Rfam assigns this 149-nucleotide sequence from Oryza meridionalis to the family "small nucleolar RNA snoR135". On this family, see Chen and Wu, Nucleic Acids Res 2009: "Mining small RNA sequencing data: a new approach to identify small nucleolar RNAs in Arabidopsis". Lineage of the source: Eukaryota > Tracheophyta > Spermatophyta > Oryzinae > Oryza.

[Rfam]
RNA sequence: CAUGCAGGACAAGUAUAAAUGGAGCUGCACAUACAAUUUCAUUGUACAUGCUGCUUAAUCUUUCCUGCUAAACCAGUUUUGGGAAAAAUGGGCAGUUGAGUUCGGCCAAUUUAUCUAUGGUUUCCUCAACAAUCAUUUUUCCCACAUGU
Numbered sequence: 001c002a003u004g005c006a007g008g009a010c011a012a013g014u015a016u017a018a019a020u021g022g023a024g025c026u027g028c029a030c031a032u033a034c035a036a037u038u039u040c041a042u043u044g045u046a047c048a049u050g051c052u053g054c055u056u057a058a059u060c061u062u063u064c065c066u067g068c069u070a071a072a073c074c075a076g077u078u079u080u081g082g083g084a085a086a087a088a089u090g091g092g093c094a095g096u097u098g099a100g101u102u103c104g105g106c107c108a109a110u111u112u113a114u115c116u117a118u119g120g121u122u123u124c125c126u127c128a129a130c131a132a133u134c135a136u137u138u139u140u141c142c143c144a145c146a147u148g149u
Stems, first nucleotide, its partner, number of pairs: 004068006013047006081143011095130006
Dot-bracket structure: ...((((((...((((((.......................))))))...............))))))............(((((((((((...((((((........................))))))..)))))))))))......